[Rfam]
RNA sequence: GUAAGACAAGUGAAAAUAACUCAUAUAAUUCCGGGAAUAUGGUCUGGAAGUUUCUACCGGACAACCGUAAAUUGUCUGACUAUGAGUGAAAGUGUACCUGAG
Numbered sequence: 001g002u003a004a005g006a007c008a009a010g011u012g013a014a015a016a017u018a019a020c021u022c023a024u025a026u027a028a029u030u031c032c033g034g035g036a037a038u039a040u041g042g043u044c045u046g047g048a049a050g051u052u053u054c055u056a057c058c059g060g061a062c063a064a065c066c067g068u069a070a071a072u073u074g075u076c077u078g079a080c081u082a083u084g085a086g087u088g089a090a091a092g093u094g095u096a097c098c099u100g101a102g
Stems, first nucleotide, its partner, number of pairs: 019087007029049007058078007
Background
Rfam assigns this 102-nucleotide RNA from Thermoanaerobacterium sp. RBIITD to the family "Purine riboswitch aptamer". The organism belongs to Thermoanaerobacterium, within Bacteria. Its family is annotated with purine nucleobase biosynthetic process in the Gene Ontology. The base pairs follow the family's consensus structure, which is taken from published work.